[Rfam]
RNA: RprA RNA
RNA sequence: ACGGAGCUAGUAUUAACCUACUGUUUGUCAAUGAGGUUUCCUCCUCGUCAGAGCUAGUAACGAAUUGCUGUGUGUAGUCUUUGCCCAUCCCCUGAGAUGGGCCUUUUUUUUC
Numbered sequence: 001a002c003g004g005a006g007c008u009a010g011u012a013u014u015a016a017c018c019u020a021c022u023g024u025u026u027g028u029c030a031a032u033g034a035g036g037u038u039u040c041c042u043c044c045u046c047g048u049c050a051g052a053g054c055u056a057g058u059a060a061c062g063a064a065u066u067g068c069u070g071u072g073u074g075u076a077g078u079c080u081u082u083g084c085c086c087a088u089c090c091c092c093u094g095a096g097a098u099g100g101g102c103c104u105u106u107u108u109u110u111u112c
Stems, first nucleotide, its partner, number of pairs: 002023003033049002035046001036044001066074003083102007